[Rfam]
RNA: Tryptophan operon leader
Organism: Ewingella americana
RNA sequence: CUCAGCUGGUGGCGCCACUUCCCUUCGCGGGCGGUGUGAUCACGCAUUUCGGUUUACAGACCAUGCAGAUACCCGAAGCCCGCUGAAUGCGGGCUUUUUUAU
Numbered sequence: 001c002u003c004a005g006c007u008g009g010u011g012g013c014g015c016c017a018c019u020u021c022c023c024u025u026c027g028c029g030g031g032c033g034g035u036g037u038g039a040u041c042a043c044g045c046a047u048u049u050c051g052g053u054u055u056a057c058a059g060a061c062c063a064u065g066c067a068g069a070u071a072c073c074c075g076a077a078g079c080c081c082g083c084u085g086a087a088u089g090c091g092g093g094c095u096u097u098u099u100u101a102u
Stems, first nucleotide, its partner, number of pairs: 009043004014037002017035003021031003077095007